[Rfam]
The record is a 175-nucleotide RNA from Carnobacterium maltaromaticum, which matches "M-box riboswitch aptamer (ykoK leader)" in Rfam. Rfam links the family to the GO terms response to magnesium ion and regulation of gene expression. The literature on the family includes a 2004 paper in Proc Natl Acad Sci U S A by Barrick et al., "New RNA motifs suggest an expanded scope for riboswitches in bacterial genetic control". Rfam describes the family as follows. M-box riboswitch, also know as ykoK leader is described as a metaloregulatory RNA that sense divalent metals and function as a genetic control element of genes related to divalent metal transport in bacteria. It was first reported upstream of the B.subtilis ykoK gene and genes with related functions in other bacteria.

RNA sequence: AAUCGGUACUGUUAGGUGAGGCUCCUAUAUAAACAUAGGCUACUGCCCAAAAAUAUCGAAAGAUGCCAAUGGGUAGAACAGGGAUUGUCGAAUUAAGGCUUUCCAUAAGGUAGCUAAAAACGAUGUGUUCGUUUUUUACGUUAUAUAGUGCUAAAGCUCAACGAAGGUAACUCUU
Number, nucleotide and partner (000 for none) at each position: 001a000002a000003u000004c000005g171006g000007u169008a168009c167010u166011g162012u161013u096014a000015g158016g157017u156018g000019a000020g152021g151022c150023u000024c000025c148026u147027a146028u145029a144030u143031a142032a141033a000034c000035a000036u000037a000038g000039g114040c113041u112042a111043c110044u000045g074046c073047c072048c071049a070050a000051a000052a000053a000054u065055a064056u063057c062058g000059a000060a000061a000062g057063a056064u055065g054066c000067c000068a000069a000070u049071g048072g047073g046074u045075a000076g000077a000078a000079c000080a000081g000082g104083g103084a102085u000086u000087g099088u098089c097090g000091a000092a000093u000094u000095a000096a013097g089098g088099c087100u000101u000102u084103c083104c082105a000106u000107a000108a000109g000110g043111u042112a041113g040114c039115u000116a136117a135118a134119a133120a132121c131122g130123a000124u000125g000126u000127g000128u000129u000130c122131g121132u120133u119134u118135u117136u116137u000138a000139c000140g000141u032142u031143a030144u029145a028146u027147a026148g025149u000150g022151c021152u020153a000154a000155a000156g017157c016158u015159c000160a000161a012162c011163g000164a000165a000166g010167g009168u008169a007170a000171c005172u000173c000174u000175u000